[Rfam]
RNA: Mu-gpT-DE RNA
RNA sequence: UCCUGACAGCUACAUGGUGUAGCUGACACUAGCCACGACAGGAGAUUACAUAUG
Dot-bracket structure: .((((.(((((.........))))).............))))............